Overview:
Shown here is a 135-nucleotide RNA sequence from Pipistrellus kuhlii, a member of the family "U11 spliceosomal RNA". Its Rfam clan is "U1 clan". Rfam classes the family as a spliceosomal small nuclear RNA. The literature on the family includes a 1988 paper in Proc Natl Acad Sci U S A by Montzka and Steitz, "Additional low-abundance human small nuclear ribonucleoproteins: U11, U12, etc". The family's consensus secondary structure is taken from published work.
RNA sequence: AAAAAGGGACUUCUAUCGUGUGUGGCACACGCAGAGCAGCCUGAUUGCUCUACGUGCAGAAUCAACAUCAAGAGGUUUCAGAAGCAUAAUGUUUUGGUACUUGGGAAGCUGGUGAUCAUUGGUCCUGGAAAACAC
Numbered sequence: 001a002a003a004a005a006g007g008g009a010c011u012u013c014u015a016u017c018g019u020g021u022g023u024g025g026c027a028c029a030c031g032c033a034g035a036g037c038a039g040c041c042u043g044a045u046u047g048c049u050c051u052a053c054g055u056g057c058a059g060a061a062u063c064a065a066c067a068u069c070a071a072g073a074g075g076u077u078u079c080a081g082a083a084g085c086a087u088a089a090u091g092u093u094u095u096g097g098u099a100c101u102u103g104g105g106a107a108g109c110u111g112g113u114g115a116u117c118a119u120u121g122g123u124c125c126u127g128g129a130a131a132a133c134a135c
Base pairs, nucleotide, nucleotide: 008085010084011083012082013081014027016025017024018023028056029055030054031053033051034050035049036048037047038046039045059078060077061076062075063074105135108133109128110127111126112125114124115123116122117121